The record is a 104-nucleotide RNA sequence, which matches "Small nucleolar RNA R44/J54/Z268 family" in Rfam. The base pairs follow the family's consensus structure, which was predicted with PFOLD. By type it is a C/D-box small nucleolar RNA. The family has 29 seed sequences and 1,168 matches in Rfam 15.1.

RNA sequence: UUGGCAUAUGAUGAGAAGCAGGACAAGAUCACCUGCCGCAUUCCUGAUCCAAAUCAGGGACGCAAUAGCAUGAUGACUCUGUCUAGGGGAAUCUCUGAUGCUAA
Numbered sequence: 001u002u003g004g005c006a007u008a009u010g011a012u013g014a015g016a017a018g019c020a021g022g023a024c025a026a027g028a029u030c031a032c033c034u035g036c037c038g039c040a041u042u043c044c045u046g047a048u049c050c051a052a053a054u055c056a057g058g059g060a061c062g063c064a065a066u067a068g069c070a071u072g073a074u075g076a077c078u079c080u081g082u083c084u085a086g087g088g089g090a091a092u093c094u095c096u097g098a099u100g101c102u103a104a
Stems, first nucleotide, its partner, number of pairs: 002103005